[Rfam]
RNA sequence: CUACGAAGGCUUACGGAGGAUGCCUUGGUGCCAGGUGCCGAAGAAGGACGUGGGUCACUGCGAAAAGCUGCGGGGAGCCGUGAACAGGCGGAGAUCCGCAGGUAUCCGAAUGGGGAAACCCGGUGGAGCGAACCUCCAUCAUCCUCUGCUGAACACAUAGGCAGAGAGAAGGGAACCCGGGGAACUGAAACAUCUAAGUACCCGGAGGAAAAGAAAGGAUUUCCCGAGUAGUGGCGAGCGAAAGGGAAAGAGCCCAAACCGGGCUGGGAACAGUCCGGGGUUGAAGGGCCGGUAAGAAGGGACGUAGAGUUAGUGGAAAGGUGUGGGACAGCCUGCCAGAGAGGGUAAGAGCCCCGUACACGAAAACGAAGCGUUCCGAGCCGGAACCCUGAGUACUGCCGGGCACGCUAAUCCGGCAGGAAGCUGGGGGGUCCACCCUCCAAGGCUAAAUACACCUGGCGACCGACAGAGGACAAGUACCGUGAGGGAAAGGUGAAAAGUACCCCGGUGAGGGGAGUGAAAUAGAACCUGAAACCGUAAGCUGACAAG
Number, nucleotide and partner (000 for none) at each position: 001c000002u000003a000004c000005g000006a000007a000008g543009g542010c541011u540012u539013a538014c537015g536016g535017a000018g000019g000020a000021u000022g529023c493024c492025u000026u000027g464028g463029u461030g460031c459032c458033a457034g456035g455036u454037g453038c172039c171040g000041a000042a000043g000044a000045a000046g107047g106048a105049c062050g061051u060052g000053g000054g000055u000056c000057a000058c000059u000060g051061c050062g049063a000064a000065a000066a000067g000068c101069u100070g099071c098072g097073g096074g095075g000076a000077g089078c088079c087080g000081u000082g000083a000084a000085c000086a000087g079088g078089c077090g000091g000092a000093g000094a000095u074096c073097c072098g071099c070100a069101g068102g000103u000104a000105u048106c047107c046108g000109a000110a000111u000112g121113g120114g119115g000116a000117a000118a000119c114120c113121c112122g140123g139124u138125g137126g136127a135128g134129c000130g000131a000132a000133c000134c128135u127136c126137c125138a124139u123140c122141a000142u169143c168144c166145u165146c164147u163148g162149c161150u160151g000152a000153a000154c000155a000156c000157a000158u000159a000160g150161g149162c148163a147164g146165a145166g144167a000168g143169a142170a000171g039172g038173g000174a000175a000176c207177c205178c204179g203180g202181g201182g000183a000184a000185c000186u000187g194188a193189a000190a000191c000192a000193u188194c187195u000196a000197a000198g000199u000200a000201c181202c180203c179204g178205g177206a000207g176208g000209a000210a000211a000212a000213g000214a000215a000216a000217g000218g000219a000220u450221u248222u247223c246224c245225c244226g000227a000228g000229u000230a000231g239232u238233g000234g000235c000236g000237a000238g232239c231240g000241a000242a000243a000244g225245g224246g223247a222248a221249a000250g000251a447252g446253c445254c444255c000256a000257a000258a000259c278260c277261g276262g275263g274264c273265u272266g000267g000268g000269a000270a000271c000272a265273g264274u263275c262276c261277g260278g259279g000280g000281u000282u000283g000284a000285a390286g389287g388288g000289c384290c383291g382292g381293u380294a000295a000296g000297a000298a000299g377300g376301g375302a374303c373304g372305u371306a000307g000308a000309g367310u366311u365312a000313g361314u360315g359316g000317a000318a000319a334320g333321g332322u331323g000324u000325g000326g000327g000328a000329c000330a000331g322332c321333c320334u319335g000336c000337c341338a000339g000340a000341g337342a000343g355344g354345g353346u000347a000348a000349g000350a000351g000352c000353c345354c344355c343356g000357u000358a000359c315360a314361c313362g000363a000364a000365a311366a310367c309368g000369a000370a000371g305372c304373g303374u302375u301376c300377c299378g000379a000380g293381c292382c291383g290384g289385a000386a000387c000388c287389c286390u285391g000392a000393g000394u000395a000396c419397u418398g417399c416400c415401g414402g413403g412404c000405a000406c000407g000408c000409u000410a000411a000412u403413c402414c401415g400416g399417c398418a397419g396420g000421a000422a000423g000424c000425u000426g441427g440428g439429g438430g437431g000432u000433c000434c000435a000436c000437c430438c429439u428440c427441c426442a000443a000444g254445g253446c252447u251448a000449a000450a220451u000452a000453c037454a036455c035456c034457u033458g032459g031460c030461g029462a000463c028464c027465g000466a000467c000468a000469g000470a000471g000472g000473a000474c000475a000476a000477g000478u000479a000480c487481c486482g000483u000484g000485a000486g481487g480488g000489a000490a000491a000492g024493g023494u000495g000496a000497a000498a000499a000500g000501u000502a000503c515504c514505c513506c512507g000508g000509u000510g000511a000512g506513g505514g504515g503516a000517g000518u000519g000520a000521a000522a000523u000524a000525g000526a000527a000528c000529c022530u000531g000532a000533a000534a000535c016536c015537g014538u013539a012540a011541g010542c009543u008544g000545a000546c000547a000548a000549g000
A member of the RNA family "Bacterial large subunit ribosomal RNA" from Anaerolinea thermolimosa, 549 nucleotides of a longer RNA. Lineage of the source: Bacteria > Anaerolineae > Anaerolineales > Anaerolineaceae > Anaerolinea. The family's consensus secondary structure is taken from published work. Its Rfam clan is "LSU clan".